RNA sequence: GUUUGUGGAUGAUGAUAAAGAAAAACAUCACAGUUACCCCUAUCUGAUAUAUUUGUGCUGACCUUUUGUGAUCUGACACUAAC
Numbered sequence: 001g002u003u004u005g006u007g008g009a010u011g012a013u014g015a016u017a018a019a020g021a022a023a024a025a026c027a028u029c030a031c032a033g034u035u036a037c038c039c040c041u042a043u044c045u046g047a048u049a050u051a052u053u054u055g056u057g058c059u060g061a062c063c064u065u066u067u068g069u070g071a072u073c074u075g076a077c078a079c080u081a082a083c
Stems, first nucleotide, its partner, number of pairs: 001083003005079003
RNA: Small nucleolar RNA R38